Notes: Small nucleolar RNA U109: a 151-nucleotide RNA sequence from Albula glossodonta. Taxonomically the source falls in Albula (Eukaryota, Craniata, Vertebrata, Euteleostomi). The match comes from Rfam's covariance-model search (54 bits).
RNA sequence: UUGCAUGUCAUGGCCCUUGGGUCAUAAUUCCACCCUUCUUUCUGUUGUAGGGGGUGUGGAACAGUGAAAAACAUGCAAUAGUAAUUGGAGUUUUCAGGGCCACCAGUCAAUGAAGUACAGGCUGCGUUGGUAGUAUAAAACUCCAACAUUC
Numbered sequence: 001u002u003g004c005a006u007g008u009c010a011u012g013g014c015c016c017u018u019g020g021g022u023c024a025u026a027a028u029u030c031c032a033c034c035c036u037u038c039u040u041u042c043u044g045u046u047g048u049a050g051g052g053g054g055u056g057u058g059g060a061a062c063a064g065u066g067a068a069a070a071a072c073a074u075g076c077a078a079u080a081g082u083a084a085u086u087g088g089a090g091u092u093u094u095c096a097g098g099g100c101c102a103c104c105a106g107u108c109a110a111u112g113a114a115g116u117a118c119a120g121g122c123u124g125c126g127u128u129g130g131u132a133g134u135a136u137a138a139a140a141c142u143c144c145a146a147c148a149u150u151c
Base pairs, nucleotide, nucleotide: 003076004075005074006073007072008071029058031056032055033054034053035052036051087144088143089142090141099131100130103126104124105123106122107121108120